[Rfam]
This 266-nucleotide sequence from Cucurbita maxima belongs to the Rfam family "RNase MRP". The family is grouped with related families in Rfam's "RNaseP clan". Taxonomically the source falls in Cucurbita (Eukaryota, Mesangiospermae, Pentapetalae, Cucurbitales). For this family Rfam cites "Secondary structure of RNase MRP RNA as predicted by phylogenetic comparison" (Schmitt et al., FASEB J, 1993). Rfam describes the family as follows. RNase MRP is an enzymatically active ribonucleoprotein with two distinct roles in eukaryotes. In mitochondria it plays a direct role in the initiation of mitochondrial DNA replication. In the nucleus it is involved in precursor rRNA processing, where it cleaves the internal transcribed spacer 1 between 18S and 5.8S rRNAs.
RNA sequence: CAACCGUGGAACGAAGUGAUUGGGCCAGUUGUUCCGAUAAGGUUUAAUGGGCUCAGGAAAGUCCCCGGGCCACUCACUGCAGAGAUGCAGACCCGGUAACGGGGUAAGCUACGAUUCCAUCGAGGCCGUCGCAUUGCACCAUGCGGGGGGCUGAGACACGUGUGGAGCCUUAGAGCCCCGAUGGAUCGAAGAUAUUACUGGCCGAGUUCACAGAUAUUCACUUAGCCAUAAAUGGUUAACAGAACGGGGCUUACGAUUCCGCGGUU
Numbered sequence: 001c002a003a004c005c006g007u008g009g010a011a012c013g014a015a016g017u018g019a020u021u022g023g024g025c026c027a028g029u030u031g032u033u034c035c036g037a038u039a040a041g042g043u044u045u046a047a048u049g050g051g052c053u054c055a056g057g058a059a060a061g062u063c064c065c066c067g068g069g070c071c072a073c074u075c076a077c078u079g080c081a082g083a084g085a086u087g088c089a090g091a092c093c094c095g096g097u098a099a100c101g102g103g104g105u106a107a108g109c110u111a112c113g114a115u116u117c118c119a120u121c122g123a124g125g126c127c128g129u130c131g132c133a134u135u136g137c138a139c140c141a142u143g144c145g146g147g148g149g150g151c152u153g154a155g156a157c158a159c160g161u162g163u164g165g166a167g168c169c170u171u172a173g174a175g176c177c178c179c180g181a182u183g184g185a186u187c188g189a190a191g192a193u194a195u196u197a198c199u200g201g202c203c204g205a206g207u208u209c210a211c212a213g214a215u216a217u218u219c220a221c222u223u224a225g226c227c228a229u230a231a232a233u234g235g236u237u238a239a240c241a242g243a244a245c246g247g248g249g250c251u252u253a254c255g256a257u258u259c260c261g262c263g264g265u266u
Stems, first nucleotide, its partner, number of pairs: 002266010014223006021055006059252003063249004078089004090105001092103004127183005136176002139173001148170004158163001225236004